[Rfam]
RNA: miR-430 microRNA precursor family
Organism: Cyclopterus lumpus
RNA sequence: AUGAUUACCCUUACGAAACACUAACUUUGUUUUUCAAUGCAGUAAGUGCUUCUUGUUGGGGUAGUUUUU
Numbered sequence: 001a002u003g004a005u006u007a008c009c010c011u012u013a014c015g016a017a018a019c020a021c022u023a024a025c026u027u028u029g030u031u032u033u034u035c036a037a038u039g040c041a042g043u044a045a046g047u048g049c050u051u052c053u054u055g056u057u058g059g060g061g062u063a064g065u066u067u068u069u
Base pairs, nucleotide, nucleotide: 004065005064006063007062008061009060010059011058013056014055015052016051017050019048020047021046022045024043025042026041